The record is an 82-nucleotide RNA sequence from Kribbella caucasensis, which matches "ZMP/ZTP riboswitch aptamer (pfl RNA motif)" in Rfam. The literature on the family includes a 2015 paper in Nat Struct Mol Biol by Jones and Ferre-D'Amare, "Recognition of the bacterial alarmone ZMP through long-distance association of two RNA subdomains". The match comes from Rfam's covariance-model search (56 bits).

Nucleotides: 082
Base pairs, nucleotide, nucleotide: 005052006051009048010047011046012045015042016041017070018069019068020067021066027038028037029036030035059077060076061075062074063073
Number, partner (000 for none) and nucleotide at each position: 001000u002000u003000a004000c005052g006051g007000c008000g009048u010047c011046g012045c013000g014000a015042c016041u017070g018069g019068c020067g021066c022000g023000u024000g025000a026000g027038g028037u029036g030035g031000a032000g033000a034000a035030c036029c037028a038027c039000c040000g041016g042015g043000g044000a045012g046011c047010g048009a049000a050000a051006u052005c053000a054000c055000g056000c057000c058000g059077g060076c061075a062074c063073c064000g065000u066021g067020c068019g069018c070017c071000u072000g073063g074062g075061u076060g077059c078000c079000g080000c081000g082000a